[Rfam]
RNA sequence: AGUAAAGGGAAGCUCAGUGCUGAGGUCACCUACAGAGUGCUGAUGUUACUCUCUAAAGCUUACCUUGGGGAAGGUCUGAGAUUAGAGCCACUUACUGUCCUCACAGGACAUUGCUUGACUAAAGCAAGUGAGUACCCAGCAAACACAAACCUGUUUCCUAUCCAAUGCAAAAGAUGUAGAACGUACAGGGUGUCCAUACAGAUGCAAAGGAAACAGGCUUGGAAGUGACUCAUGGCUGGCAUCUUCAAGUUCAAUGGCUGUCAGGAGGCAGAUGCUUCCCAACCCAAUUCAGACUACUCUCCCUCUACU
Dot-bracket structure: ((((...(((....[[[[..(((((.........((((((....).)))))...........)))))........(((((.....((((......(((((.....)))))((((((.....))))))((((((................((((............................................................))))..........))))))))))...................]]]]...((((((....))))))........))))).......)))...))))
Notes:
Nuclear RNase P: a 309-nucleotide RNA sequence from Hymenochirus boettgeri. Rfam classes the family as a ribozyme. Rfam 15.1 lists 3,848 matches to the family in 1,862 species. It scores 182 bits against the family's covariance model. Ribonuclease P (RNase P) is a ubiquitous endoribonuclease, found in archaea, bacteria and eukarya as well as chloroplasts and mitochondria. Its best characterised activity is the generation of mature 5'-ends of tRNAs by cleaving the 5'-leader elements of precursor-tRNAs. Cellular RNase Ps are ribonucleoproteins. Lineage of the source: Eukaryota > Opisthokonta > Amphibia > Batrachia > Hymenochirus.